[Rfam]
This 122-nucleotide RNA from Peromyscus maniculatus belongs to the Rfam family "Small nucleolar RNA SNORA32". ACA32 is a member of the H/ACA class of snoRNA that guide the sites of modification of uridines to pseudouridines. Its family is annotated with RNA processing and nucleolus in the Gene Ontology. It scores 66 bits against the family's covariance model. NCBI's taxonomy places the organism under Eukaryota, Cricetidae, Neotominae, Peromyscus, Peromyscus maniculatus.
RNA sequence: UGGUCAUUCCUAAGGUUUAGAAACUCUUUCUCAAUUGUUGUGGACAUUACCAUGAAAAAAAAAAAUUACCCACUAGUUUUCUGCCUGGUUCCUUUCUAGUGAUUAGCCUAUUGGGAACAUUU
Numbered sequence: 001u002g003g004u005c006a007u008u009c010c011u012a013a014g015g016u017u018u019a020g021a022a023a024c025u026c027u028u029u030c031u032c033a034a035u036u037g038u039u040g041u042g043g044a045c046a047u048u049a050c051c052a053u054g055a056a057a058a059a060a061a062a063a064a065a066u067u068a069c070c071c072a073c074u075a076g077u078u079u080u081c082u083g084c085c086u087g088g089u090u091c092c093u094u095u096c097u098a099g100u101g102a103u104u105a106g107c108c109u110a111u112u113g114g115g116a117a118c119a120u121u122u
Base pairs, nucleotide, nucleotide: 003050004049006047007046010043011042012041023038024037069115070114071113072112076107077106078105086101087100